Rfam assigns this 78-nucleotide RNA sequence from Streptomyces sp. Ag109_O5-10 to the family "Streptomyces RNA 6106". NCBI's taxonomy places the organism under Bacteria, Actinomycetota, Actinomycetes, Streptomycetaceae, Streptomyces. Rfam's curators write: Identified by deep sequencing of transcriptome at the end of exponential growth phase. Appears smaller on northern blot than sequencing transcript. A reference for the family is Vockenhuber et al. (2011), "Deep sequencing-based identification of small non-coding RNAs in Streptomyces coelicolor", RNA Biol. By type it is a small RNA. It scores 56 bits against the family's covariance model.
RNA sequence: ACGCCGUGGCGUCAGCGGCCUGACAUGGGCCGACGAGGCGGGGGUGGUGCCGUGUCGGCGCAGCACCACCCCCACCUG
Numbered sequence: 001a002c003g004c005c006g007u008g009g010c011g012u013c014a015g016c017g018g019c020c021u022g023a024c025a026u027g028g029g030c031c032g033a034c035g036a037g038g039c040g041g042g043g044g045u046g047g048u049g050c051c052g053u054g055u056c057g058g059c060g061c062a063g064c065a066c067c068a069c070c071c072c073c074a075c076c077u078g
Stems, first nucleotide, its partner, number of pairs: 001012004015034001018031001019029003038075001040073011052061003